[Rfam]
The family of this 97-nucleotide RNA from Ophiocordyceps australis is "Small nucleolar RNA Z13/snr52". Taxonomically the source falls in Ophiocordyceps (Eukaryota, saccharomyceta, leotiomyceta, Hypocreomycetidae).

RNA sequence: UUGUUGUCAAUGAUGAAUUAUUGCGGAUGUAAACCAUGUCACAUCUGAAUGCGCAAAAUUAUGUUGAAAUUUCCGUUGCCUUCCUUCUGACCUGACC
Number, nucleotide and partner (000 for none) at each position: 001u000002u000003g097004u000005u095006g000007u000008c000009a000010a000011u000012g000013a000014u000015g000016a000017a000018u000019u000020a000021u000022u000023g000024c075025g074026g073027a072028u000029g000030u000031a000032a000033a000034c000035c000036a000037u000038g000039u000040c000041a000042c000043a000044u000045c000046u000047g000048a000049a000050u000051g000052c000053g000054c000055a000056a000057a000058a000059u000060u000061a000062u000063g000064u000065u000066g000067a000068a000069a000070u000071u000072u027073c026074c025075g024076u000077u000078g000079c000080c000081u000082u000083c000084c000085u000086u000087c000088u000089g000090a000091c000092c000093u000094g000095a005096c000097c003
By type it is a C/D-box small nucleolar RNA. The match comes from Rfam's covariance-model search (83 bits).